Source information:
Shown here is a 183-nucleotide sequence from Oryza sativa, a member of the family "MIR1435 microRNA precursor family". NCBI's taxonomy places the organism under Eukaryota, Embryophyta, Magnoliopsida, Mesangiospermae, Oryza. The family has 3 seed sequences and 1,765 matches in Rfam 15.1. Gene Ontology terms of the family: miRNA-mediated post-transcriptional gene silencing and RISC complex.
[Rfam]
RNA sequence: ACUUUUCUUAAGUCAAACUUUUUUUUAGAUUUGAUCAAAUUUAUAAAAAAAAUAUAGCAAUAUUUUUAGAAAAAAAUAUGUUCAAUAUUAAAUGUAAUGAAACUAAUUUGGUGCUAUAACUGUUUUUAUAUUUUUCUAUAAUAAAUUUGAUUAAACUUUGAAGUAGUUUGACUUAAAAAAAGU
Numbered sequence: 001a002c003u004u005u006u007c008u009u010a011a012g013u014c015a016a017a018c019u020u021u022u023u024u025u026u027a028g029a030u031u032u033g034a035u036c037a038a039a040u041u042u043a044u045a046a047a048a049a050a051a052a053u054a055u056a057g058c059a060a061u062a063u064u065u066u067u068a069g070a071a072a073a074a075a076a077u078a079u080g081u082u083c084a085a086u087a088u089u090a091a092a093u094g095u096a097a098u099g100a101a102a103c104u105a106a107u108u109u110g111g112u113g114c115u116a117u118a119a120c121u122g123u124u125u126u127u128a129u130a131u132u133u134u135u136c137u138a139u140a141a142u143a144a145a146u147u148u149g150a151u152u153a154a155a156c157u158u159u160g161a162a163g164u165a166g167u168u169u170g171a172c173u174u175a176a177a178a179a180a181a182g183u
Base pairs, nucleotide, nucleotide: 002182003181004180005179006178008176009175010174011173012172013171014170015169016168017167018166019165021163022162023161031155032154034152042138043137045135046134047133048132049131052127054123055122056121057120060117061116062115066111067110068109069108070107